[Rfam]
RNA sequence: UUUUAGCAUUUGUAGACGUUAAAGAACAAAGCGGUUCGUGGCCGUAACCACGUUAAAAAACGUA
Numbered sequence: 001u002u003u004u005a006g007c008a009u010u011u012g013u014a015g016a017c018g019u020u021a022a023a024g025a026a027c028a029a030a031g032c033g034g035u036u037c038g039u040g041g042c043c044g045u046a047a048c049c050a051c052g053u054u055a056a057a058a059a060a061c062g063u064a
Base pairs, nucleotide, nucleotide: 001018003016004015010029011028012027013026037052038051039050040049
The record is a 64-nucleotide RNA from Anoxybacteroides amylolyticum, which matches "GP20-b RNA" in Rfam.
The match comes from Rfam's covariance-model search (44 bits).
Pairs were carried over by alignment from the consensus structure, which is taken from published work.
The source organism's lineage runs through Bacteria, Bacillati, Bacillota, Caryophanales and Anoxybacteroides.